A member of the RNA family "Y RNA" from Prolemur simus, 113 nucleotides long. The family's consensus secondary structure is taken from published work. It scores 61 bits against the family's covariance model. The family's RNA type in Rfam is non-coding RNA gene.

RNA sequence: AGCUGGUCCAAAGGUAGCGAGUUAUCUCACUUGAUGGUUCACAGUUAGUUUCAGAUUGAAUUCCUUGUUCUACUACUUCCCCCCUCCUCACUACUGGACUUGACUAGUCUUUG
Numbered sequence: 001a002g003c004u005g006g007u008c009c010a011a012a013g014g015u016a017g018c019g020a021g022u023u024a025u026c027u028c029a030c031u032u033g034a035u036g037g038u039u040c041a042c043a044g045u046u047a048g049u050u051u052c053a054g055a056u057u058g059a060a061u062u063c064c065u066u067g068u069u070c071u072a073c074u075a076c077u078u079c080c081c082c083c084c085u086c087c088u089c090a091c092u093a094c095u096g097g098a099c100u101u102g103a104c105u106a107g108u109c110u111u112u113g
Stems, first nucleotide, its partner, number of pairs: 002108007010101002015096001016092002019089003044074001047071002